[Rfam]
A member of the RNA family "Small nucleolar RNA snoR97" from Lactuca sativa, 112 nucleotides long. By type it is an H/ACA-box small nucleolar RNA. Pairs were carried over by alignment from the consensus structure, which was predicted with WAR.

RNA sequence: AAUAUAUAAUGGAUCUAGAGUCUGAAAAAUCACGCAACAAUGUUUUGCUAUCAACUUCAUCUUUUGUAAGAUAACAUUAUCGAGAUUGUAGUUAAAUGACAGCACAAGUUGU
Numbered sequence: 001a002a003u004a005u006a007u008a009a010u011g012g013a014u015c016u017a018g019a020g021u022c023u024g025a026a027a028a029a030u031c032a033c034g035c036a037a038c039a040a041u042g043u044u045u046u047g048c049u050a051u052c053a054a055c056u057u058c059a060u061c062u063u064u065u066g067u068a069a070g071a072u073a074a075c076a077u078u079a080u081c082g083a084g085a086u087u088g089u090a091g092u093u094a095a096a097u098g099a100c101a102g103c104a105c106a107a108g109u110u111g112u
Stems, first nucleotide, its partner, number of pairs: 041106003045102003053093004058088001060085004